RNA sequence: GCAACGGCUAGGCUUCGCGAGCCGAACACCGGGCAUCACCACCCGGCUCGCCGUUGUUUUUCAAUCCAUUGG
Numbered sequence: 001g002c003a004a005c006g007g008c009u010a011g012g013c014u015u016c017g018c019g020a021g022c023c024g025a026a027c028a029c030c031g032g033g034c035a036u037c038a039c040c041a042c043c044c045g046g047c048u049c050g051c052c053g054u055u056g057u058u059u060u061u062c063a064a065u066c067c068a069u070u071g072g
Stems, first nucleotide, its partner, number of pairs: 001057008011023004029046005039071001041069001
RNA: int-alpA RNA
Organism: Novipirellula galeiformis